[Rfam]
RNA sequence: AAUAUAAUUAUAGCGCCCGGACUAAGGAAAUCGUACGUGCAAUCCUUAGUUGACGAGGAGGAGGUUUAUCGAGGUGAUCGGCGGAUGCCUCCCGGCCGCGUUGCCCGGUCGUGAUUUUCGUUCUUAAAACAUAAAAGCAAUUUUAUGGACAAAGGAACGAAAAGGCAACUUU
Numbered sequence: 001a002a003u004a005u006a007a008u009u010a011u012a013g014c015g016c017c018c019g020g021a022c023u024a025a026g027g028a029a030a031u032c033g034u035a036c037g038u039g040c041a042a043u044c045c046u047u048a049g050u051u052g053a054c055g056a057g058g059a060g061g062a063g064g065u066u067u068a069u070c071g072a073g074g075u076g077a078u079c080g081g082c083g084g085a086u087g088c089c090u091c092c093c094g095g096c097c098g099c100g101u102u103g104c105c106c107g108g109u110c111g112u113g114a115u116u117u118u119c120g121u122u123c124u125u126a127a128a129a130c131a132u133a134a135a136a137g138c139a140a141u142u143u144u145a146u147g148g149a150c151a152a153a154g155g156a157a158c159g160a161a162a163a164g165g166c167a168a169c170u171u172u
Base pairs, nucleotide, nucleotide: 020051021050022049023048024047025046026045027044029043060092061091062090063089064088069081070080071079072078093111094110095109096108097107098106116162117161118160119159120158121157122156130147131146132145133144134143135142136141